The record is a 153-nucleotide RNA from Roseburia sp. CAG:303, which matches "Clostridiales-1 RNA" in Rfam.
RNA sequence: UGCUAUCAGGCUCGAAAAGUAAAAAUAUAUGUGCUUGCACAAUAUAUUUUUACCUUGAGAGCCGCCAAAUAUGAGGAAGGAGCGAUUUACGAAGUAAAUCAGCGGAAUCCGAAUAUUUGAAGAAUUGCCGGAAACGGCAAUUCGAAGAUAGCA
Numbered sequence: 001u002g003c004u005a006u007c008a009g010g011c012u013c014g015a016a017a018a019g020u021a022a023a024a025a026u027a028u029a030u031g032u033g034c035u036u037g038c039a040c041a042a043u044a045u046a047u048u049u050u051u052a053c054c055u056u057g058a059g060a061g062c063c064g065c066c067a068a069a070u071a072u073g074a075g076g077a078a079g080g081a082g083c084g085a086u087u088u089a090c091g092a093a094g095u096a097a098a099u100c101a102g103c104g105g106a107a108u109c110c111g112a113a114u115a116u117u118u119g120a121a122g123a124a125u126u127g128c129c130g131g132a133a134a135c136g137g138c139a140a141u142u143c144g145a146a147g148a149u150a151g152c153a
Stems, first nucleotide, its partner, number of pairs: 001153007010062004016056002019053011030041004066119007075110003082103002084100007122143009